[Rfam]
RNA sequence: AUUAACGUGAAGUAACACUUAUUAACGCUAAUAGCGAUGAAGAAUAUCUUAACUUUAUCUAUUAUCCUUUAUGUAGGUUACAUCAUAUGAGCCUCACGACAUUUCUCCUUAAACCGAAACUGUUUUUACAGAUUCGUUGUUCUACGCAAUGAUCACCCCAAUCAUUGCGUAUUUUUUUGCCUAAAAAUUUUA
Numbered sequence: 001a002u003u004a005a006c007g008u009g010a011a012g013u014a015a016c017a018c019u020u021a022u023u024a025a026c027g028c029u030a031a032u033a034g035c036g037a038u039g040a041a042g043a044a045u046a047u048c049u050u051a052a053c054u055u056u057a058u059c060u061a062u063u064a065u066c067c068u069u070u071a072u073g074u075a076g077g078u079u080a081c082a083u084c085a086u087a088u089g090a091g092c093c094u095c096a097c098g099a100c101a102u103u104u105c106u107c108c109u110u111a112a113a114c115c116g117a118a119a120c121u122g123u124u125u126u127u128a129c130a131g132a133u134u135c136g137u138u139g140u141u142c143u144a145c146g147c148a149a150u151g152a153u154c155a156c157c158c159c160a161a162u163c164a165u166u167g168c169g170u171a172u173u174u175u176u177u178u179g180c181c182u183a184a185a186a187a188u189u190u191u192a
Base pairs, nucleotide, nucleotide: 013051014050015049017047020046021045022044023043026039027038063192064191068187069186070185074183075182076181077180078179079098084091115136116135117134118133120131121130122129123128144170145169146168147167148166149165150164151163152162153161